[Rfam]
RNA sequence: AGACGUCUCACGGGGAGCCUCAUACGGGGCUGAGAGGCGGCAGGGCCGCCGACCCGUCGAACCUGAUCCGGAUCAUGCCGGCGGAGGGAAUGAGCAUGCGACAUCGC
Numbered sequence: 001a002g003a004c005g006u007c008u009c010a011c012g013g014g015g016a017g018c019c020u021c022a023u024a025c026g027g028g029g030c031u032g033a034g035a036g037g038c039g040g041c042a043g044g045g046c047c048g049c050c051g052a053c054c055c056g057u058c059g060a061a062c063c064u065g066a067u068c069c070g071g072a073u074c075a076u077g078c079c080g081g082c083g084g085a086g087g088g089a090a091u092g093a094g095c096a097u098g099c100g101a102c103a104u105c106g107c
Base pairs, nucleotide, nucleotide: 007094008093009092010091011056012055013054014053017030018029019028020027021026037049038048039047040046041045062087063086064085068081069080070079071078
RNA: TPP riboswitch aptamer (THI element)